The record is a 177-nucleotide RNA from Actinacidiphila oryziradicis, which matches "c-di-AMP riboswitch aptamer (ydaO/yuaA leader)" in Rfam. Gene Ontology terms of the family: regulation of gene expression and cyclic-di-AMP binding. The match comes from Rfam's covariance-model search (49 bits). A reference for the family is Barrick et al. (2004), "New RNA motifs suggest an expanded scope for riboswitches in bacterial genetic control", Proc Natl Acad Sci U S A. Lineage of the source: Bacteria > Bacillati > Actinomycetota > Kitasatosporales > Actinacidiphila. The base pairs follow the family's consensus structure.
[Rfam]
RNA sequence: CCGCCGCGGAUGCCAGGUCGACAUGAGUGGCUCGGCAGGAGCGGAGGACCCAGCACGACGGGGCCGGCCAACGGGAUUGUGGGCCGACCUCUUGGGGUGAAGCCGCCUUUGCGGCCGGGCAUCUUCGCCUGCCCGAACCCGACAGGUCAUCCUUCGCAGGCGGACGACGAAGGGUUA
Number, nucleotide and partner (000 for none) at each position: 001c000002c162003g161004c160005c159006g000007c000008g000009g000010a000011u000012g000013c000014c000015a000016g000017g000018u000019c000020g000021a000022c000023a000024u000025g000026a000027g000028u000029g000030g000031c000032u000033c000034g000035g000036c000037a000038g000039g000040a000041g157042c156043g155044g154045a153046g152047g000048a000049c000050c000051c094052a093053g000054c000055a000056c000057g000058a000059c000060g000061g000062g000063g000064c000065c000066g000067g000068c000069c000070a000071a000072c000073g000074g000075g000076a000077u000078u000079g000080u000081g000082g000083g000084c000085c000086g000087a000088c000089c000090u000091c000092u000093u052094g051095g140096g139097g138098u000099g000100a000101a000102g000103c114104c113105g112106c111107c000108u000109u000110u000111g106112c105113g104114g103115c000116c000117g134118g133119g132120c131121a000122u000123c000124u000125u000126c000127g000128c000129c000130u000131g120132c119133c118134c117135g000136a000137a000138c097139c096140c095141g000142a000143c000144a000145g000146g000147u000148c000149a000150u000151c000152c046153u045154u044155c043156g042157c041158a000159g005160g004161c003162g002163g000164a000165c000166g000167a000168c000169g000170a000171a000172g000173g000174g000175u000176u000177a000